[Rfam]
eL15-Euryarchaeota ribosomal protein leader: a 72-nucleotide RNA sequence from Natrinema thermotolerans.
The base pairs follow the family's consensus structure, which is taken from published work.
Taxonomically the source falls in Natrinema thermotolerans (Archaea, Methanobacteriati, Halobacteria, Natrialbaceae).
The family's RNA type in Rfam is cis-regulatory leader.

RNA sequence: CCUGCACGACGCCGCGUCACAGGUCGGGAUGUGAUCCGCGGGGCUCGGCCCCGGUCGGGAUUGAACCAGCAA
Numbered sequence: 001c002c003u004g005c006a007c008g009a010c011g012c013c014g015c016g017u018c019a020c021a022g023g024u025c026g027g028g029a030u031g032u033g034a035u036c037c038g039c040g041g042g043g044c045u046c047g048g049c050c051c052c053g054g055u056c057g058g059g060a061u062u063g064a065a066c067c068a069g070c071a072a
Stems, first nucleotide, its partner, number of pairs: 001023004026067002033062005